[Rfam]
RNA sequence: AUCCCUUAUGUCGUGUAUUCCCAAUUAAUGCAGCCUCAUAUGCUUC
Numbered sequence: 001a002u003c004c005c006u007u008a009u010g011u012c013g014u015g016u017a018u019u020c021c022c023a024a025u026u027a028a029u030g031c032a033g034c035c036u037c038a039u040a041u042g043c044u045u046c
Base pairs, nucleotide, nucleotide: 010025011024013022032044033043034042
RNA: Plastid-ycf3 group II-D1 intron
Organism: Trifolium medium